[Rfam]
Background: The family of this 54-nucleotide RNA sequence from a Planctomycetota bacterium is "Acido-Lenti-1 RNA". It is annotated as a small RNA. The match comes from Rfam's covariance-model search (52 bits).
RNA sequence: CCCAGGGCUGCGCUUCCCUUGCCCCGGGCUAUAUUAUACCGCCCCUUCGGGGCU
Numbered sequence: 001c002c003c004a005g006g007g008c009u010g011c012g013c014u015u016c017c018c019u020u021g022c023c024c025c026g027g028g029c030u031a032u033a034u035u036a037u038a039c040c041g042c043c044c045c046u047u048c049g050g051g052g053c054u
Stems, first nucleotide, its partner, number of pairs: 001028003005024004041053005